Background: The family of this 70-nucleotide RNA sequence from Calypte anna is "Small nucleolar RNA SNORD58". Rfam 15.1 lists 2,484 matches to the family in 680 species. From the family's description: snoRNA U58 is found in introns 1, 3 and 6 of the ribosomal protein RPL17 gene in humans.
RNA sequence: CGGCGGUGAUGACCAUCUUAGGACACCUUUGGAAUAACCAUGAAAAAAAAAGAUGUUUGUUCUGAGCUGU
Numbered sequence: 001c002g003g004c005g006g007u008g009a010u011g012a013c014c015a016u017c018u019u020a021g022g023a024c025a026c027c028u029u030u031g032g033a034a035u036a037a038c039c040a041u042g043a044a045a046a047a048a049a050a051a052g053a054u055g056u057u058u059g060u061u062c063u064g065a066g067c068u069g070u
Stems, first nucleotide, its partner, number of pairs: 001069004
A reference for the family is Galardi et al. (2002), "Purified box C/D snoRNPs are able to reproduce site-specific 2'-O-methylation of target RNA in vitro", Mol Cell Biol.